[Rfam]
RNA: mir-9256 microRNA precursor family
Organism: Pipistrellus kuhlii
RNA sequence: AAACACACUGAGUGGCCAGAUGAUCAUGAUCUCUGAAUGCAUAAUAAUCUGGUCACUCAGUGUGUGU
Numbered sequence: 001a002a003a004c005a006c007a008c009u010g011a012g013u014g015g016c017c018a019g020a021u022g023a024u025c026a027u028g029a030u031c032u033c034u035g036a037a038u039g040c041a042u043a044a045u046a047a048u049c050u051g052g053u054c055a056c057u058c059a060g061u062g063u064g065u066g067u
Base pairs, nucleotide, nucleotide: 004064005063006062007061008060009059010058011057012056013055014054015053016052017051019049020048021047023045024044026042027041028040
Dot-bracket structure: ...((((((((((((((.(((.((.(((...........))).)).))).))))))))))))))...